[Rfam]
RNA sequence: UGGGCUGGUCGCAAGACCCGGGUCCAACCAAACGGGCGGGUAAAGACGAC
Numbered sequence: 001u002g003g004g005c006u007g008g009u010c011g012c013a014a015g016a017c018c019c020g021g022g023u024c025c026a027a028c029c030a031a032a033c034g035g036g037c038g039g040g041u042a043a044a045g046a047c048g049a050c
Stems, first nucleotide, its partner, number of pairs: 001026006007018004
RNA: DUF3800-XI RNA